[Rfam]
RNA sequence: UGGAACAAUCUGUAAAGCUCAGGAGGGAUAGCGCCAUAGAUGAUGAGGAAGGAAGGAACUCCAUGUUCUCAUCCAAAUGCGCUAUCUAUCUUGAGCUUCAUGGAUUCUCCCU
Number, nucleotide and partner (000 for none) at each position: 001u000002g000003g000004a000005a000006c000007a000008a000009u000010c103011u000012g000013u000014a000015a000016a097017g096018c095019u094020c093021a092022g091023g090024a089025g000026g087027g086028a085029u084030a083031g082032c081033g080034c079035c000036a000037u000038a000039g000040a000041u000042g000043a000044u000045g000046a000047g000048g000049a000050a000051g000052g000053a000054a000055g000056g000057a000058a000059c000060u000061c000062c000063a000064u000065g000066u000067u000068c000069u000070c000071a000072u000073c000074c000075a000076a000077a000078u000079g034080c033081g032082c031083u030084a029085u028086c027087u026088a000089u024090c023091u022092u021093g020094a019095g018096c017097u016098u000099c000100a000101u000102g000103g010104a000105u000106u000107c000108u000109c000110c000111c000112u000